The record is a 110-nucleotide sequence from Microbacterium bovistercoris, which matches "TPP riboswitch aptamer (THI element)" in Rfam. A search with the family's covariance model found it, with a score of 58 bits. The source organism's lineage runs through Bacteria, Actinomycetota, Actinomycetes, Micrococcales and Microbacterium. From the family's description: Vitamin B(1) in its active form thiamin pyrophosphate (TPP) is an essential coenzyme that is synthesised by coupling of pyrimidine and thiazole moieties in bacteria. The previously detected thiamin-regulatory element, thi box was extended, resulting in a new, highly conserved RNA secondary structure, the THI element, which is widely distributed in eubacteria and also occurs in some archaea. Analysis of operon structures identified a large number of new candidate thiamin-regulated genes, mostly transporters, in various prokaryotic organisms.
[Rfam]
RNA sequence: AGGCACAACCACGGGAGUCCGGCGUGCCGGGCUGAGAGGAAGCGACCCGCGCUUCGACCGUCGAACCUGAUCCGGAUCAUGCCGGCGCAGGGAGGAGUUCCAUAUGAGUG
Numbered sequence: 001a002g003g004c005a006c007a008a009c010c011a012c013g014g015g016a017g018u019c020c021g022g023c024g025u026g027c028c029g030g031g032c033u034g035a036g037a038g039g040a041a042g043c044g045a046c047c048c049g050c051g052c053u054u055c056g057a058c059c060g061u062c063g064a065a066c067c068u069g070a071u072c073c074g075g076a077u078c079a080u081g082c083c084g085g086c087g088c089a090g091g092g093a094g095g096a097g098u099u100c101c102a103u104a105u106g107a108g109u110g
Stems, first nucleotide, its partner, number of pairs: 009095002011061004017032005039055005066091004072085004